[Rfam]
RNA sequence: CAAUUCCCACCUGACAAGAAAGGCCAUCCUUGCCAGUAAUGAACCUGCGUGCAUAUCCAGUAGGGUGUGUAUGAAGCCAGGUGUAGUGAGUGCGUAGGCCGCGUCACUGAUCUCCGAAAGUUGUAUAUUUGUGGUCGAUAAGGAAAGCAUCGAUAACCUGCGAUAGUAGCGGGGAAAGCCGACAGUUUGGAUUUACUGGAAGGCAAGAGUCUUUAACGCGCUAAGGCAAGCGUUAACGACACCACCGGAGACUGCGAGCG
Numbered sequence: 001c002a003a004u005u006c007c008c009a010c011c012u013g014a015c016a017a018g019a020a021a022g023g024c025c026a027u028c029c030u031u032g033c034c035a036g037u038a039a040u041g042a043a044c045c046u047g048c049g050u051g052c053a054u055a056u057c058c059a060g061u062a063g064g065g066u067g068u069g070u071a072u073g074a075a076g077c078c079a080g081g082u083g084u085a086g087u088g089a090g091u092g093c094g095u096a097g098g099c100c101g102c103g104u105c106a107c108u109g110a111u112c113u114c115c116g117a118a119a120g121u122u123g124u125a126u127a128u129u130u131g132u133g134g135u136c137g138a139u140a141a142g143g144a145a146a147g148c149a150u151c152g153a154u155a156a157c158c159u160g161c162g163a164u165a166g167u168a169g170c171g172g173g174g175a176a177a178g179c180c181g182a183c184a185g186u187u188u189g190g191a192u193u194u195a196c197u198g199g200a201a202g203g204c205a206a207g208a209g210u211c212u213u214u215a216a217c218g219c220g221c222u223a224a225g226g227c228a229a230g231c232g233u234u235a236a237c238g239a240c241a242c243c244a245c246c247g248g249a250g251a252c253u254g255c256g257a258g259c260g
Stems, first nucleotide, its partner, number of pairs: 012035002015032002018028002023227002037089001039087002044081002047077001048073011108254001109252001111251006131245005178204003183198004209240003213236007

This 260-nucleotide sequence from methanotrophic endosymbiont of Bathymodiolus puteoserpentis belongs to the Rfam family "Group II catalytic intron D1-D4-6". Group II introns are found in rRNA, tRNA and mRNA of organelles in fungi, plants and protists, and also in mRNA in bacteria. It scores 74 bits against the family's covariance model. The literature on the family includes a 2001 paper in Trends Genet by Bonen and Vogel, "The ins and outs of group II introns".